Description:
U12 minor spliceosomal RNA: a 147-nucleotide RNA sequence from Vulpes vulpes.
RNA sequence: AUGCCUUAAGCCACGAGUAAGGAAAACGACAAUUCGGAGUGAUGCCAGAAUCCUCACUGCUAACGUGAGACAGUUUUGAGGGGGUAAAGGUUGCCUCUGAGGUGCCCUGCCUGCUUCGUGGGAUGCCUGGGAGUCGCCGUCUGCCCA
Numbered sequence: 001a002u003g004c005c006u007u008a009a010g011c012c013a014c015g016a017g018u019a020a021g022g023a024a025a026a027c028g029a030c031a032a033u034u035c036g037g038a039g040u041g042a043u044g045c046c047a048g049a050a051u052c053c054u055c056a057c058u059g060c061u062a063a064c065g066u067g068a069g070a071c072a073g074u075u076u077u078g079a080g081g082g083g084g085u086a087a088a089g090g091u092u093g094c095c096u097c098u099g100a101g102g103u104g105c106c107c108u109g110c111c112u113g114c115u116u117c118g119u120g121g122g123a124u125g126c127c128u129g130g131g132a133g134u135c136g137c138c139g140u141c142u143g144c145c146c147a
Base pairs, nucleotide, nucleotide: 004022005021006020007019008018032051033050034049035048037046053069054068055067056066057065082146083145084144085143088142089141090140091139093137094136097131098130100128101127102126103125104124106122107121108120109119110118
The base pairs follow the family's consensus structure. It is annotated as a spliceosomal small nuclear RNA. Taxonomically the source falls in Vulpes (Eukaryota, Theria, Eutheria, Caniformia). It scores 83 bits against the family's covariance model.